[Rfam]
Nucleotides: 071
Base pairs, nucleotide, nucleotide: 001070002069003068004067005066006065007064010024011023012022013021026042027041028040029039030038047063048062049061050060051059
Number, partner (000 for none) and nucleotide at each position: 001070u002069g003068c004067c005066u006065g007064a008000u009000a010024g011023u012022a013021u014000a015000a016000g017000g018000g019000u020000a021013g022012u023011a024010c025000g026042a027041c028040a029039g030038a031000u032000u033000u034000u035000g036000g037000u038030u039029c040028u041027g042026u043000a044000u045000g046000u047063c048062u049061u050060g051059g052000u053000u054000c055000g056000a057000a058000u059051c060050c061049a062048g063047g064007u065006c066005g067004g068003g069002c070001a071000a